RNA sequence: ACCCUCCAGUUCCCUUUUCCAUCCGAUUUGAACACCACUCUUGGUGGUCGUAAAAGGAGGAAAAAUAAUACUGAAGCUGGCUUCAUAGUGCUUAUAGUCUGCUCUAUAGGAUGUGGGCUAGUUUAAAACAAGC
Numbered sequence: 001a002c003c004c005u006c007c008a009g010u011u012c013c014c015u016u017u018u019c020c021a022u023c024c025g026a027u028u029u030g031a032a033c034a035c036c037a038c039u040c041u042u043g044g045u046g047g048u049c050g051u052a053a054a055a056g057g058a059g060g061a062a063a064a065a066u067a068a069u070a071c072u073g074a075a076g077c078u079g080g081c082u083u084c085a086u087a088g089u090g091c092u093u094a095u096a097g098u099c100u101g102c103u104c105u106a107u108a109g110g111a112u113g114u115g116g117g118c119u120a121g122u123u124u125a126a127a128a129c130a131a132g133c
Base pairs, nucleotide, nucleotide: 003060004059005058006057007056019047020046021045022044023043025040026039028037077121078120079119080118081117082116083115093111095109
Small nucleolar RNA SNORA61: a 133-nucleotide RNA from Cnephaeus nilssonii. Rfam links the family to the GO terms nucleolus and RNA processing. Taxonomically the source falls in Cnephaeus (Eukaryota, Deuterostomia, Sarcopterygii, Yangochiroptera). ACA61 is a member of the H/ACA class of snoRNA that guide the sites of modification of uridines to pseudouridines. Pairs were carried over by alignment from the consensus structure, which was predicted with PFOLD. The family's RNA type in Rfam is H/ACA-box small nucleolar RNA.